Shown here is a 113-nucleotide RNA from Cynara cardunculus, a member of the family "Small nucleolar RNA Z103".
A search with the family's covariance model found it, with a score of 90 bits.
Pairs were carried over by alignment from the consensus structure, which was predicted with PFOLD.
Rfam links the family to the GO terms RNA processing and nucleolus.
It is annotated as a C/D-box small nucleolar RNA.
RNA sequence: AUGGAAAUGAUGAUUAUUUCCCCAGAUGAUCGAAGUUGAUUAUACUGUGCGCUAUUUUUACAUUCUCUUUUUCUUUUUAAGAAAAGAGAAUCCAAGCCAGAAAUCUGAUCCAU
Numbered sequence: 001a002u003g004g005a006a007a008u009g010a011u012g013a014u015u016a017u018u019u020c021c022c023c024a025g026a027u028g029a030u031c032g033a034a035g036u037u038g039a040u041u042a043u044a045c046u047g048u049g050c051g052c053u054a055u056u057u058u059u060a061c062a063u064u065c066u067c068u069u070u071u072u073c074u075u076u077u078u079a080a081g082a083a084a085a086g087a088g089a090a091u092c093c094a095a096g097c098c099a100g101a102a103a104u105c106u107g108a109u110c111c112a113u
Stems, first nucleotide, its partner, number of pairs: 001113005